[Rfam]
A member of the RNA family "Small nucleolar RNA SNORD73" from Microtus ochrogaster, 70 nucleotides long.
RNA sequence: AAUACAUGAUGAGAAGAUGUUUCGGUCCCAGUUGAUGUACACUGAUAACUGUUAACAUUUUCCUGAUGUU
Numbered sequence: 001a002a003u004a005c006a007u008g009a010u011g012a013g014a015a016g017a018u019g020u021u022u023c024g025g026u027c028c029c030a031g032u033u034g035a036u037g038u039a040c041a042c043u044g045a046u047a048a049c050u051g052u053u054a055a056c057a058u059u060u061u062c063c064u065g066a067u068g069u070u
Stems, first nucleotide, its partner, number of pairs: 001070004
Notes
Rfam links the family to the GO terms nucleolus and RNA processing. The match comes from Rfam's covariance-model search (78 bits). For this family Rfam cites "A novel snoRNA (U73) is encoded within the introns of the human and mouse ribosomal protein S3a genes" (Rebane et al., Gene, 1998). Rfam classes the family as a C/D-box small nucleolar RNA.